[Rfam]
RNA sequence: UGUGAAUGCCCUCCUUGGGCGUUUCCUCCCUAGAUUUUACCGCGCGUCACGCGCGGUUUUUUUUGCCCGGC
Numbered sequence: 001u002g003u004g005a006a007u008g009c010c011c012u013c014c015u016u017g018g019g020c021g022u023u024u025c026c027u028c029c030c031u032a033g034a035u036u037u038u039a040c041c042g043c044g045c046g047u048c049a050c051g052c053g054c055g056g057u058u059u060u061u062u063u064u065g066c067c068c069g070g071c
Base pairs, nucleotide, nucleotide: 008020009019010018011017040056041055042054043053044052045051046050
Shown here is a 71-nucleotide sequence from Parahoeflea olei, a member of the family "Makes More Granules Regulator RNA (mmgR)". It scores 65 bits against the family's covariance model. Rfam's curators write: SuhB later renamed mmgR (makes more granules regulator) was a putative non-coding RNA found multiple times in the Agrobacterium tumefaciens genome and related alpha-proteobacteria. The pairing is the family consensus, mapped onto this sequence. By type it is a small RNA. Gene Ontology terms of the family: protein binding, response to nitrogen compound and DNA-templated transcription, termination. A reference for the family is Corbino et al. (2005), "Evidence for a second class of S-adenosylmethionine riboswitches and other regulatory RNA motifs in alpha-proteobacteria", Genome Biol.